[Rfam]
RNA sequence: CAUGGAUAUGAUGAUAACCUUUUCUGAAAUUUUAUAAUGUAGACUAAAUAAAUCAGACUACAAUUAUCUGAUCUCAUG
Numbered sequence: 001c002a003u004g005g006a007u008a009u010g011a012u013g014a015u016a017a018c019c020u021u022u023u024c025u026g027a028a029a030u031u032u033u034a035u036a037a038u039g040u041a042g043a044c045u046a047a048a049u050a051a052a053u054c055a056g057a058c059u060a061c062a063a064u065u066a067u068c069u070g071a072u073c074u075c076a077u078g
Base pairs, nucleotide, nucleotide: 001078002077003076004075005073006072

Overview: This 78-nucleotide sequence from Corchorus capsularis belongs to the Rfam family "Small nucleolar RNA Z155". A reference for the family is Chen et al. (2003), "The high diversity of snoRNAs in plants: identification and comparative study of 120 snoRNA genes from Oryza sativa", Nucleic Acids Res. Lineage of the source: Eukaryota > Magnoliopsida > malvids > Apeibeae > Corchorus. The match comes from Rfam's covariance-model search (56 bits). Rfam classes the family as a C/D-box small nucleolar RNA.